[Rfam]
RNA: Streptomyces sRNA 4677
Organism: Streptomyces malaysiense
RNA sequence: UGACCCGGUGGUGCGCGACCCCAAAACCCAAAGAACCGGGGAAAGAACCGAACCCACCCCCACCGCCCCCGUCACUCACUCGGCGGAGUGAAUAUGCCAGACGAAACUGGCGUGGCGGGGCAUUUGUGGUGCAGCGUCAGCGAUGACAACCCGCCGACAUGCGUCGGCCCUCGCCGGGACUGGCAUCCCGAUGCGAGGGCCUGAUCACCAAGGAAUCGACCCUUCCCCG
Numbered sequence: 001u002g003a004c005c006c007g008g009u010g011g012u013g014c015g016c017g018a019c020c021c022c023a024a025a026a027c028c029c030a031a032a033g034a035a036c037c038g039g040g041g042a043a044a045g046a047a048c049c050g051a052a053c054c055c056a057c058c059c060c061c062a063c064c065g066c067c068c069c070c071g072u073c074a075c076u077c078a079c080u081c082g083g084c085g086g087a088g089u090g091a092a093u094a095u096g097c098c099a100g101a102c103g104a105a106a107c108u109g110g111c112g113u114g115g116c117g118g119g120g121c122a123u124u125u126g127u128g129g130u131g132c133a134g135c136g137u138c139a140g141c142g143a144u145g146a147c148a149a150c151c152c153g154c155c156g157a158c159a160u161g162c163g164u165c166g167g168c169c170c171u172c173g174c175c176g177g178g179a180c181u182g183g184c185a186u187c188c189c190g191a192u193g194c195g196a197g198g199g200c201c202u203g204a205u206c207a208c209c210a211a212g213g214a215a216u217c218g219a220c221c222c223u224u225c226c227c228c229g
Stems, first nucleotide, its partner, number of pairs: 007209004015066003076091006107140004166201005172195003176189004212227002214224002
Dot-bracket structure: ......((((....(((..............................................))).........((((((....))))))...............((((..........................)))).........................(((((.(((.((((......))))...))).)))))....))))..((((.......)).))..